The record is a 96-nucleotide sequence, which matches "PhotoRC-II RNA" in Rfam. It is annotated as a cis-regulatory element. The family's consensus secondary structure is taken from published work. Rfam's curators put it in the seed alignment.

RNA sequence: AAUCGUUCGAACACUCCCCACAAACCGAGACCUCAAGGGAGAAUAAAUACGUCUCUCAUACCUGCACUGGAGGGUGGUGCAGGAAUACUAAAACUA
Numbered sequence: 001a002a003u004c005g006u007u008c009g010a011a012c013a014c015u016c017c018c019c020a021c022a023a024a025c026c027g028a029g030a031c032c033u034c035a036a037g038g039g040a041g042a043a044u045a046a047a048u049a050c051g052u053c054u055c056u057c058a059u060a061c062c063u064g065c066a067c068u069g070g071a072g073g074g075u076g077g078u079g080c081a082g083g084a085a086u087a088c089u090a091a092a093a094c095u096a
Stems, first nucleotide, its partner, number of pairs: 014041005027055005061083007